[Rfam]
RNA sequence: UAUCAUAUGAUGAGCCACUCGGAUUCCCCUUCAGGACAUCCUGGAUGAUGCAAAACCGAGUUUCUGAUGAU
Dot-bracket structure: .((((..............................................................))))
Numbered sequence: 001u002a003u004c005a006u007a008u009g010a011u012g013a014g015c016c017a018c019u020c021g022g023a024u025u026c027c028c029c030u031u032c033a034g035g036a037c038a039u040c041c042u043g044g045a046u047g048a049u050g051c052a053a054a055a056c057c058g059a060g061u062u063u064c065u066g067a068u069g070a071u
Stems, first nucleotide, its partner, number of pairs: 002071004

Description:
A member of the RNA family "Small nucleolar RNA snoR60" from Helianthus annuus, 71 nucleotides long. Clan: SNORD101 clan.